The record is an 81-nucleotide RNA from Helianthus annuus, which matches "Small nucleolar RNA Z199" in Rfam. On this family, see Chen et al., Nucleic Acids Res 2003: "The high diversity of snoRNAs in plants: identification and comparative study of 120 snoRNA genes from Oryza sativa". Rfam's curators write: snoZ199 is a C/D box small nucleolar RNA, which acts as a methylation guide RNA for sites on 18S and 25S rRNA. Rice snoZ199 is reported to be homologous to Arabidopsis snoR13. It is annotated as a C/D-box small nucleolar RNA. Rfam 15.1 lists 953 matches to the family in 222 species. A search with the family's covariance model found it, with a score of 69 bits. The organism belongs to Helianthus, within Eukaryota. The base pairs follow the family's consensus structure, which was predicted with PFOLD.

RNA sequence: CAUCAAGUGAUGAGAAAUAUAACUGCAACAAAAUGAUCGACUAUUUGUUCGUGAUUAUUGGUAUUUAAGUCUCUGAUGAUG
Numbered sequence: 001c002a003u004c005a006a007g008u009g010a011u012g013a014g015a016a017a018u019a020u021a022a023c024u025g026c027a028a029c030a031a032a033a034u035g036a037u038c039g040a041c042u043a044u045u046u047g048u049u050c051g052u053g054a055u056u057a058u059u060g061g062u063a064u065u066u067a068a069g070u071c072u073c074u075g076a077u078g079a080u081g
Stems, first nucleotide, its partner, number of pairs: 001081005039050002042047001